FMN riboswitch aptamer (RFN element): a 127-nucleotide RNA sequence from Staphylococcus haemolyticus.

RNA sequence: AUUCAUCUUCGGGGUAGGGUGCAAUUCCCAACCGGCAGUAAAUUAAGCCUGCGACCCGCUUCUUUGAAGUGGCUGAUUCAGUGGAAAUCUGAAGCCGACAGUAUAGUCUGGAUGGAAGAAGAUGGAG
Numbered sequence: 001a002u003u004c005a006u007c008u009u010c011g012g013g014g015u016a017g018g019g020u021g022c023a024a025u026u027c028c029c030a031a032c033c034g035g036c037a038g039u040a041a042a043u044u045a046a047g048c049c050u051g052c053g054a055c056c057c058g059c060u061u062c063u064u065u066g067a068a069g070u071g072g073c074u075g076a077u078u079c080a081g082u083g084g085a086a087a088u089c090u091g092a093a094g095c096c097g098a099c100a101g102u103a104u105a106g107u108c109u110g111g112a113u114g115g116a117a118g119a120a121g122a123u124g125g126a127g
Stems, first nucleotide, its partner, number of pairs: 003125008017029003031107002033097002035052004047095002056072002077093005099110003

About this RNA
It is one of the family's seed sequences. Rfam links the family to the GO term FMN binding. Rfam describes the family as follows. The RFN element is a highly conserved domain that is found frequently in the 5'-untranslated regions of prokaryotic mRNAs that encode for flavin mononucleotide (FMN) biosynthesis and transport proteins. The base pairs follow the family's consensus structure, which is taken from published work.